[Rfam]
RNA sequence: UAUCGAUAAUGGCACAGCUAUCGAAAGAUAGCGUCGCAAAGCUAUGGGUCUAAGGAAGAAAUAUUCUAUGAUUGCCAGGUUACCGAA
Numbered sequence: 001u002a003u004c005g006a007u008a009a010u011g012g013c014a015c016a017g018c019u020a021u022c023g024a025a026a027g028a029u030a031g032c033g034u035c036g037c038a039a040a041g042c043u044a045u046g047g048g049u050c051u052a053a054g055g056a057a058g059a060a061a062u063a064u065u066c067u068a069u070g071a072u073u074g075c076c077a078g079g080u081u082a083c084c085g086a087a
Stems, first nucleotide, its partner, number of pairs: 012037002017032006040081004045077003048072003055066003
RNA: c-di-GMP-I riboswitch aptamer
Organism: Natronincola peptidivorans